[Rfam]
Nucleotides: 273
Stems, first nucleotide, its partner, number of pairs: 001273004038251003043236005049230001060221004064128007086113007139198005153179009
Number, partner (000 for none) and nucleotide at each position: 001273g002272g003271u004270c005000a006000g007000u008000g009000a010000u011000g012000a013000g014000c015000a016000g017000u018000a019000a020000a021000a022000g023000g024000u025000c026000u027000g028000a029000u030000u031000a032000c033000c034000c035000a036000c037000a038251a039250u040249c041000c042000c043236c044235u045234c046233c047232u048000g049230c050000c051000g052000u053000c054000c055000u056000c057000u058000g059000g060221c061220u062219c063218c064128c065127a066126g067125c068124a069123g070122c071000c072000c073000c074000u075000g076000c077000u078000c079000u080000c081000u082000g083000c084000u085000c086113c087112c088111a089110u090109c091108a092107u093000g094000c095000u096000c097000u098000a099000g100000u101000g102000g103000u104000u105000c106000a107092g108091u109090g110089g111088u112087g113086g114000u115000c116000c117000c118000a119000g120000g121000a122070g123069c124068u125067g126066c127065u128064g129000a130000c131000a132000c133000u134000a135000a136000c137000a138000g139198g140197a141196u142195g143194u144000g145000a146000c147000a148000u149000c150000a151000c152000a153179g154178a155177g156176u157175c158174u159173g160172u161171a162000c163000a164000g165000a166000g167000a168000a169000a170000c171161u172160a173159c174158a175157g176156g177155c178154u179153c180000a181000g182000u183000g184000a185000u186000g187000a188000u189000g190000a191000c192000u193000g194143a195142c196141a197140u198139c199000c200000a201000a202000c203000a204000a205000a206000a207000c208000c209000a210000a211000u212000c213000a214000g215000c216000a217000c218063g219062g220061a221060g222000c223000a224000u225000c226000a227000g228000g229000c230049g231000g232047a233046g234045g235044a236043g237000g238000a239000g240000g241000a242000g243000g244000g245000a246000g247000c248000u249040g250039a251038u252000c253000a254000c255000a256000a257000g258000u259000u260000u261000u262000c263000a264000a265000c266000c267000u268000g269000a270004g271003a272002c273001c
Shown here is a 273-nucleotide RNA from Sparus aurata, a member of the family "Small Cajal body specific RNA 6". The literature on the family includes a 2002 paper in EMBO J by Darzacq et al., "Cajal body-specific small nuclear RNAs: a novel class of 2'-O-methylation and pseudouridylation guide RNAs". A search with the family's covariance model found it, with a score of 104 bits. The base pairs follow the family's consensus structure, which is taken from published work. Rfam classes the family as a small Cajal body RNA. Rfam links the family to the GO terms nucleolus and RNA processing.